[Rfam]
RNA sequence: UAAGACAACUCUGGAAAGUCGGGGGCAACUCCGCGCCGAAGGUGUAAGUAUGGCUUUAUAUAUAGCCAUGCGAGUCUCUCAGGCCUGAGACAGAGGGGCACGA
Numbered sequence: 001u002a003a004g005a006c007a008a009c010u011c012u013g014g015a016a017a018g019u020c021g022g023g024g025g026c027a028a029c030u031c032c033g034c035g036c037c038g039a040a041g042g043u044g045u046a047a048g049u050a051u052g053g054c055u056u057u058a059u060a061u062a063u064a065g066c067c068a069u070g071c072g073a074g075u076c077u078c079u080c081a082g083g084c085c086u087g088a089g090a091c092a093g094a095g096g097g098g099c100a101c102g103a
Stems, first nucleotide, its partner, number of pairs: 006098001009095005020033004035084003038080002042078001044076001048071008
Glycine riboswitch aptamer: a 103-nucleotide RNA sequence from Brucella suis.
It is one of the family's seed sequences.